[Rfam]
RNA: Fluoride riboswitch aptamer (crcB RNA motif)
Organism: Trinickia dinghuensis
RNA sequence: CUUUAUUCAGGAGAUGGCAUUCCUCCUUUCAACCGCCGGCCACGCCGGCUGAUGAUGCCUACGAGUUC
Numbered sequence: 001c002u003u004u005a006u007u008c009a010g011g012a013g014a015u016g017g018c019a020u021u022c023c024u025c026c027u028u029u030c031a032a033c034c035g036c037c038g039g040c041c042a043c044g045c046c047g048g049c050u051g052a053u054g055a056u057g058c059c060u061a062c063g064a065g066u067u068c
Base pairs, nucleotide, nucleotide: 010026011025012024013023016059017058018057019056020055021054035049036048037047038046